[Rfam]
RNA sequence: GGGUUCCGACCAGUUCAGUCAUCGGGGUUACAUACAGAGUUCGUGUAACUCAUAUCACCCUGUGGAAAGUCCCCGGAGAUAGGGCGGAAAGCGUCGCACCGUGAUGGUGGAGGCCGGGUCAGCUUCGUAGGGGAGGAUUACCUGUGCGAGGCUGUACUCGUAGCGUUGCUCAGAGCAAAGAGAAUAUUGAGAGGGCUAUCAGCCUAACCAAAUGGGGCUUACUCGGUCUGGAACC
Numbered sequence: 001g002g003g004u005u006c007c008g009a010c011c012a013g014u015u016c017a018g019u020c021a022u023c024g025g026g027g028u029u030a031c032a033u034a035c036a037g038a039g040u041u042c043g044u045g046u047a048a049c050u051c052a053u054a055u056c057a058c059c060c061u062g063u064g065g066a067a068a069g070u071c072c073c074c075g076g077a078g079a080u081a082g083g084g085c086g087g088a089a090a091g092c093g094u095c096g097c098a099c100c101g102u103g104a105u106g107g108u109g110g111a112g113g114c115c116g117g118g119u120c121a122g123c124u125u126c127g128u129a130g131g132g133g134a135g136g137a138u139u140a141c142c143u144g145u146g147c148g149a150g151g152c153u154g155u156a157c158u159c160g161u162a163g164c165g166u167u168g169c170u171c172a173g174a175g176c177a178a179a180g181a182g183a184a185u186a187u188u189g190a191g192a193g194g195g196c197u198a199u200c201a202g203c204c205u206a207a208c209c210a211a212a213u214g215g216g217g218c219u220u221a222c223u224c225g226g227u228c229u230g231g232a233a234c235c
Base pairs, nucleotide, nucleotide: 002235003234004233005232006231007230008228009227010226011225014191015190016189017188018187019186023062024061025060026059027058028057037051038050039049040048041047067220068219069218071217072216073215074214083095084094085093086092097109098108099107100106101105112164115160116159117158118157119156121153122152123151124150125149126148127147128146135142136141193205194204195203196202197201
This 235-nucleotide RNA from Heliothis virescens belongs to the Rfam family "RNase MRP". The family is grouped with related families in Rfam's "RNaseP clan". The organism belongs to Heliothis, within Eukaryota. For this family Rfam cites "Phylogenetic analysis of the structure of RNase MRP RNA in yeasts" (Li et al., RNA, 2002).